[Rfam]
RNA sequence: AGAGGCGGUAAGCAGAAGAUUAGGGGAAAACACACGACAAGACUUGUUCUUGAUCUCUACUACCCUUGGGAAGGUCUGAGCAAAGCCGCUGAAGUUCGAGAGGGACUGGUUGAGAACUUCUUGACCACCAAUAACCAGCAAUCGGGUACUUGUUGCUGCCGAGUGCGCGCAAUGCCCACGCGUUUACUUGUCUUUUGCUCGUUGAAGUCUUUUGACUGAGGGUGCAGGCCUGUAAACGCUUGGAAGGAUGUUGGUUGGCGAAGCGAUUAUGGAGUGCAAUUCUUCUGACCUGCUUGCCGGGGAACUCAAUUCAGACUACUCUACUGCCUCU
Numbered sequence: 001a002g003a004g005g006c007g008g009u010a011a012g013c014a015g016a017a018g019a020u021u022a023g024g025g026g027a028a029a030a031c032a033c034a035c036g037a038c039a040a041g042a043c044u045u046g047u048u049c050u051u052g053a054u055c056u057c058u059a060c061u062a063c064c065c066u067u068g069g070g071a072a073g074g075u076c077u078g079a080g081c082a083a084a085g086c087c088g089c090u091g092a093a094g095u096u097c098g099a100g101a102g103g104g105a106c107u108g109g110u111u112g113a114g115a116a117c118u119u120c121u122u123g124a125c126c127a128c129c130a131a132u133a134a135c136c137a138g139c140a141a142u143c144g145g146g147u148a149c150u151u152g153u154u155g156c157u158g159c160c161g162a163g164u165g166c167g168c169g170c171a172a173u174g175c176c177c178a179c180g181c182g183u184u185u186a187c188u189u190g191u192c193u194u195u196u197g198c199u200c201g202u203u204g205a206a207g208u209c210u211u212u213u214g215a216c217u218g219a220g221g222g223u224g225c226a227g228g229c230c231u232g233u234a235a236a237c238g239c240u241u242g243g244a245a246g247g248a249u250g251u252u253g254g255u256u257g258g259c260g261a262a263g264c265g266a267u268u269a270u271g272g273a274g275u276g277c278a279a280u281u282c283u284u285c286u287g288a289c290c291u292g293c294u295u296g297c298c299g300g301g302g303a304a305c306u307c308a309a310u311u312c313a314g315a316c317u318a319c320u321c322u323a324c325u326g327c328c329u330c331u
Base pairs, nucleotide, nucleotide: 001331002330003329004328008324009323010322013287014286015285016284017283018282019281022067023066024065025064026063038052039051040050041049042048076314077313078312079311080310085259086258087257093107094106095105096104097103108126109125110124111123112122113121127255128254129253130252131251132250133249146239289301290300291299292298